[Rfam]
RNA sequence: AAAAAUGAAAAAAGUAAACUUCGUAUAACCCUAAUGAUAUGGUUUAGGGGUCUCUACCAGGAGCCAAAAACUUCUGAUUACGAAGAAAAUUUGUUAUUCA
Number, nucleotide and partner (000 for none) at each position: 001a000002a000003a000004a000005a000006u000007g000008a000009a000010a000011a000012a000013a000014g000015u000016a000017a000018a000019c085020u084021u083022c082023g081024u080025a079026u000027a000028a000029c049030c048031c047032u046033a045034a044035u000036g000037a000038u000039a000040u000041g000042g000043u000044u034045u033046a032047g031048g030049g029050g000051u000052c000053u000054c000055u000056a000057c000058c076059a075060g074061g073062a072063g071064c000065c000066a000067a000068a000069a000070a000071c063072u062073u061074c060075u059076g058077a000078u000079u025080a024081c023082g022083a021084a020085g019086a000087a000088a000089a000090u000091u000092u000093g000094u000095u000096a000097u000098u000099c000100a000